[Rfam]
RNA sequence: CGGUGCUCACUGGAUGUAACAGCAACUCCAUGUGGAAGCUGUGUGUGUGUUCCAGUGGAGAUGCUGUUACCUGCAGCGAGCCA
Numbered sequence: 001c002g003g004u005g006c007u008c009a010c011u012g013g014a015u016g017u018a019a020c021a022g023c024a025a026c027u028c029c030a031u032g033u034g035g036a037a038g039c040u041g042u043g044u045g046u047g048u049g050u051u052c053c054a055g056u057g058g059a060g061a062u063g064c065u066g067u068u069a070c071c072u073g074c075a076g077c078g079a080g081c082c083a
Base pairs, nucleotide, nucleotide: 010076011075012074016070017069018068019067020066021065022064023063026060027059028058029057030056031055033054034053035052

Background: Rfam assigns this 83-nucleotide sequence from Myripristis murdjan to the family "mir-194 microRNA precursor family". Pairs were carried over by alignment from the consensus structure, which was predicted with RNAalifold. A search with the family's covariance model found it, with a score of 86 bits. For this family Rfam cites "New microRNAs from mouse and human" (Lagos-Quintana et al., RNA, 2003). The family has 46 seed sequences and 936 matches in Rfam 15.1.